[Rfam]
RNA: Lysine riboswitch aptamer
RNA sequence: UAUCUAAGAAGAGGUGCGGGACUGAUUAGUAACUACUGUGAGUUGAAAAGCAAUGUUGACCAGUAGCGAAAGGAAUUUCCGCCGAAGUGACAAUCGUCUUUUUGCGAUUUGAGCUGGGGCUUGACUUAAUAGGUCAAGCACUGUCGUGAGUAUUCACGGGGCGCUUUCGAUAGU
Numbered sequence: 001u002a003u004c005u006a007a008g009a010a011g012a013g014g015u016g017c018g019g020g021a022c023u024g025a026u027u028a029g030u031a032a033c034u035a036c037u038g039u040g041a042g043u044u045g046a047a048a049a050g051c052a053a054u055g056u057u058g059a060c061c062a063g064u065a066g067c068g069a070a071a072g073g074a075a076u077u078u079c080c081g082c083c084g085a086a087g088u089g090a091c092a093a094u095c096g097u098c099u100u101u102u103u104g105c106g107a108u109u110u111g112a113g114c115u116g117g118g119g120c121u122u123g124a125c126u127u128a129a130u131a132g133g134u135c136a137a138g139c140a141c142u143g144u145c146g147u148g149a150g151u152a153u154u155c156a157c158g159g160g161g162c163g164c165u166u167u168c169g170a171u172a173g174u
Stems, first nucleotide, its partner, number of pairs: 008167004016082006023075001033066006086115003092109006116142002119139008144159006